[Rfam]
RNA sequence: GGCCGGGUGGAUAGGGCCGAAUACAACACCCGCAAGGGGAAUAAGCCCAGCCGUCUAUGUGCGGAGAGUGACGCCCGGCUACCUGCCU
Numbered sequence: 001g002g003c004c005g006g007g008u009g010g011a012u013a014g015g016g017c018c019g020a021a022u023a024c025a026a027c028a029c030c031c032g033c034a035a036g037g038g039g040a041a042u043a044a045g046c047c048c049a050g051c052c053g054u055c056u057a058u059g060u061g062c063g064g065a066g067a068g069u070g071a072c073g074c075c076c077g078g079c080u081a082c083c084u085g086c087c088u
Stems, first nucleotide, its partner, number of pairs: 001080009014048004020042001029038003051064004

Notes:
Shown here is an 88-nucleotide RNA from Saccharospirillum salsuginis, a member of the family "sRNA-Xcc1".